[Rfam]
RNA sequence: AAAGUUUGACAGACAAUCGCUGGCGGCCUCGUUGCCGCGAGAGGAAAGUCCGGGCUCCACAAGGCAGGGUGCUGGAUAACAUCCAGUCAGCGCGAGCUGAAGGAUAGUGCCACAGAAAUGGACCGCCGAUGGCUGGCUUUGCCAGCACAGGCAAGGGUGGAACCGUGGUGUAAGAGACCACGAGGCGUGCAGGUGACUGCAGGCCUGGUAAACCCCAUCUGGAGCAAGACCGAGAGAGCGCAGCAGCUUCGAGCUGCAGCCUUAGCCUGAGGCGCGUUCGGGUUGGUUGCUGGAGCCGUACAGUAAUGUGCGGCCUAGAUAGAUGAUUGUCGCUUCGUCGUGGGAGGGUCGUUCCCGUUUGGACCACUUGAAGUACAGAACCCGGCUUAAGGCAAACUUUCCGC
Dot-bracket structure: ((((((((.(.(((((((.((.(((((......))))).))....[[[.[[[[[((((...[[[[.((((((((((.....)))))(((((....)))).)((...(((((...........(((((..((..............))..)))..)).......((((((.......))))))..((.(((((....))))).))..)))..)))))))))))))...((((....((((((.................(((((.]]]]))))))))))).....))))......((((((((....))))))))..........))))))).................................................]]]]]]]]..).))))))))....
RNA: Bacterial RNase P class A
Organism: Paenibacillus sp. NEAU-GSW1